[Rfam]
Rfam assigns this 140-nucleotide RNA sequence from Dokdonella koreensis to the family "RtT RNA". By type it is a cis-regulatory element. Rfam links the family to the GO term cellular response to amino acid starvation. The family's consensus secondary structure is taken from published work. Taxonomically the source falls in Dokdonella koreensis (Bacteria, Pseudomonadati, Rhodanobacteraceae, Dokdonella).
RNA sequence: UUCGAAGCGCGGCGGAGGUGGAUUGAGAACCGCCGUCGUGGUUCGACAGGGACGCAGGAGCGGCCCUGAACGUAUCGCGUAGCGAUACGGCCCGGAGGGUGGAGGGCAGGAUGCCCGGAGUCAUCCACCUCCCUCCACCA
Numbered sequence: 001u002u003c004g005a006a007g008c009g010c011g012g013c014g015g016a017g018g019u020g021g022a023u024u025g026a027g028a029a030c031c032g033c034c035g036u037c038g039u040g041g042u043u044c045g046a047c048a049g050g051g052a053c054g055c056a057g058g059a060g061c062g063g064c065c066c067u068g069a070a071c072g073u074a075u076c077g078c079g080u081a082g083c084g085a086u087a088c089g090g091c092c093c094g095g096a097g098g099g100u101g102g103a104g105g106g107c108a109g110g111a112u113g114c115c116c117g118g119a120g121u122c123a124u125c126c127a128c129c130u131c132c133c134u135c136c137a138c139c140a
Base pairs, nucleotide, nucleotide: 015131016130017129018128019127020126021125023123034101035100037098042096043095044094045093049066050065071089072088073087074086075085076084